The family of this 140-nucleotide sequence from Morus notabilis is "Small nucleolar RNA U19".
The family has 3 seed sequences and 421 matches in Rfam 15.1.
The base pairs follow the family's consensus structure, which was predicted with WAR.
Taxonomically the source falls in Morus (Eukaryota, Streptophytina, Pentapetalae, fabids).
RNA sequence: UAACGGCUUAGUUAGGGGGCGGAGAUUAAUUGAUUGAGAGGAGAGCGUGUUGCUCUUUUUUCUAUUAAAACCGAGGCCUUUUGAGGGGACUUUCUAGUUGAUUUUGGUGUCGAUUGUCCUCCAAGCAGCCUUGGACAUUG
Numbered sequence: 001u002a003a004c005g006g007c008u009u010a011g012u013u014a015g016g017g018g019g020c021g022g023a024g025a026u027u028a029a030u031u032g033a034u035u036g037a038g039a040g041g042a043g044a045g046c047g048u049g050u051u052g053c054u055c056u057u058u059u060u061u062c063u064a065u066u067a068a069a070a071c072c073g074a075g076g077c078c079u080u081u082u083g084a085g086g087g088g089a090c091u092u093u094c095u096a097g098u099u100g101a102u103u104u105u106g107g108u109g110u111c112g113a114u115u116g117u118c119c120u121c122c123a124a125g126c127a128g129c130c131u132u133g134g135a136c137a138u139u140g
Base pairs, nucleotide, nucleotide: 004021005020007018008017009016036062037061038060039059040058043055044054045053046052047051071134072133073132074131075130076129077128080125081124082123083122085121086120087119088118089117090116093113